RNA sequence: AACUCAUCAAGAGCAGCUGAGGGACUGGCCCUAUGACGCUGCGGCAACCAUGAUUUUAUUAUCAAACGGUGCUAAUUCCUUUAGGAUUAAUCCUAGAAGAUGAGAG
Numbered sequence: 001a002a003c004u005c006a007u008c009a010a011g012a013g014c015a016g017c018u019g020a021g022g023g024a025c026u027g028g029c030c031c032u033a034u035g036a037c038g039c040u041g042c043g044g045c046a047a048c049c050a051u052g053a054u055u056u057u058a059u060u061a062u063c064a065a066a067c068g069g070u071g072c073u074a075a076u077u078c079c080u081u082u083a084g085g086a087u088u089a090a091u092c093c094u095a096g097a098a099g100a101u102g103a104g105a106g
Base pairs, nucleotide, nucleotide: 003104004103005102006101007100008099013042014041015040016039017038021031022030023029027079028078043073044072045071046070048069049068051064052063053062077098082095083094084093085092086091

The record is a 106-nucleotide RNA sequence from Pectinatus brassicae, which matches "SAM riboswitch aptamer (S box leader)" in Rfam. Taxonomically the source falls in Pectinatus (Bacteria, Negativicutes, Selenomonadales, Selenomonadaceae).